[Rfam]
RNA sequence: AGUUUGCCGUGAUGAAGUACAUGUCAAGUCCAUGUUUCAGCUGAUCACACUGAUUACACACAUGUGCUGAGCAGACU
Numbered sequence: 001a002g003u004u005u006g007c008c009g010u011g012a013u014g015a016a017g018u019a020c021a022u023g024u025c026a027a028g029u030c031c032a033u034g035u036u037u038c039a040g041c042u043g044a045u046c047a048c049a050c051u052g053a054u055u056a057c058a059c060a061c062a063u064g065u066g067c068u069g070a071g072c073a074g075a076c077u
Stems, first nucleotide, its partner, number of pairs: 001077007
The record is a 77-nucleotide sequence from Peromyscus maniculatus, which matches "Small nucleolar RNA SNORD126" in Rfam.
Rfam classes the family as a C/D-box small nucleolar RNA.
The family has 6 seed sequences and 215 matches in Rfam 15.1.
A search with the family's covariance model found it, with a score of 90 bits.
The base pairs follow the family's consensus structure, which was predicted with WAR.
A reference for the family is Yang et al. (2006), "snoSeeker: an advanced computational package for screening of guide and orphan snoRNA genes in the human genome", Nucleic Acids Res.
Rfam links the family to the GO terms RNA processing and nucleolus.